[Rfam]
RNA: Small nucleolar RNA SNORA9
Organism: Monodelphis domestica
RNA sequence: GUGCAAGCUUUCCAGCAUGUCGGUGUCCUCUAUGACCCCAGACAUUCCUAAAGACUUGCUAGAGUAAUCCUGAGAUGGUUUGAGGCCUCACUCUGCUCUGACUUCGGAGUAAGGUUAUAGAAAUCUCAGAUAUUG
Numbered sequence: 001g002u003g004c005a006a007g008c009u010u011u012c013c014a015g016c017a018u019g020u021c022g023g024u025g026u027c028c029u030c031u032a033u034g035a036c037c038c039c040a041g042a043c044a045u046u047c048c049u050a051a052a053g054a055c056u057u058g059c060u061a062g063a064g065u066a067a068u069c070c071u072g073a074g075a076u077g078g079u080u081u082g083a084g085g086c087c088u089c090a091c092u093c094u095g096c097u098c099u100g101a102c103u104u105c106g107g108a109g110u111a112a113g114g115u116u117a118u119a120g121a122a123a124u125c126u127c128a129g130a131u132a133u134u135g
Stems, first nucleotide, its partner, number of pairs: 003059005018044003023038001025036003071128005086114003090110002093107003
Dot-bracket structure: ..(((((..........(((..(.(((......))).)...)))..........)))))...........(((((..........(((.((.(((.........))).)).))).........))))).......